A member of the RNA family "Group II catalytic intron D1-D4-3" from Prevotella multiformis, 170 nucleotides long. The literature on the family includes a 2001 paper in Trends Genet by Bonen and Vogel, "The ins and outs of group II introns". Pairs were carried over by alignment from the consensus structure. Taxonomically the source falls in Prevotella multiformis (Bacteria, Bacteroidales, Prevotellaceae, Prevotella). A search with the family's covariance model found it, with a score of 96 bits.
RNA sequence: UCCACCGUGAGAUGAAAUCUGAAGAAAGCUGAUGGCAACCUCCUGCUCCAACGCAUAGGAACUUCAUAUAAGACAUGUAGUGUGGGUAAGGUUGCUAAACAAACUAAAGCCCGAUGGCUAUUCGUAACGGUUGAUAUAAAUGAAGUAGUUAUGAGGAAAAGGCAAUGUCU
Numbered sequence: 001u002c003c004a005c006c007g008u009g010a011g012a013u014g015a016a017a018u019c020u021g022a023a024g025a026a027a028g029c030u031g032a033u034g035g036c037a038a039c040c041u042c043c044u045g046c047u048c049c050a051a052c053g054c055a056u057a058g059g060a061a062c063u064u065c066a067u068a069u070a071a072g073a074c075a076u077g078u079a080g081u082g083u084g085g086g087u088a089a090g091g092u093u094g095c096u097a098a099a100c101a102a103a104c105u106a107a108a109g110c111c112c113g114a115u116g117g118c119u120a121u122u123c124g125u126a127a128c129g130g131u132u133g134a135u136a137u138a139a140a141u142g143a144a145g146u147a148g149u150u151a152u153g154a155g156g157a158a159a160a161g162g163c164a165a166u167g168u169c170u
Base pairs, nucleotide, nucleotide: 001016003014004013006011028170032166035163036162041156042155044153045152048148050146062145063144064143065142066141067140073137075135079131081129082128083127084112085111086110087109090105091104092103093102